[Rfam]
RNA sequence: GCGCGUUCUCAGGGCGGGGUGAAAGUCCCCACCGGCGGUAAAGGCGGAGCUGCAAGGCGAAGCACGAGCCCGCGGGCGCUCUCCAGACCUCUGGUCCGGGGAGGCAGCAGACACCGGUUGGAUCCCGGGGCCGACGGUUAGAGUCCGGUUAUGAGAACCACU
Numbered sequence: 001g002c003g004c005g006u007u008c009u010c011a012g013g014g015c016g017g018g019g020u021g022a023a024a025g026u027c028c029c030c031a032c033c034g035g036c037g038g039u040a041a042a043g044g045c046g047g048a049g050c051u052g053c054a055a056g057g058c059g060a061a062g063c064a065c066g067a068g069c070c071c072g073c074g075g076g077c078g079c080u081c082u083c084c085a086g087a088c089c090u091c092u093g094g095u096c097c098g099g100g101g102a103g104g105c106a107g108c109a110g111a112c113a114c115c116g117g118u119u120g121g122a123u124c125c126c127g128g129g130g131c132c133g134a135c136g137g138u139u140a141g142a143g144u145c146c147g148g149u150u151a152u153g154a155g156a157a158c159c160a161c162u
Base pairs, nucleotide, nucleotide: 005158006157007156008155009154010153017029018028019027031144032143033133034132035073036072037071038070068131069130076108077107112129114128115127116126117125135147136146137145
RNA: FMN riboswitch aptamer (RFN element)
Organism: Alphaproteobacteria bacterium PA2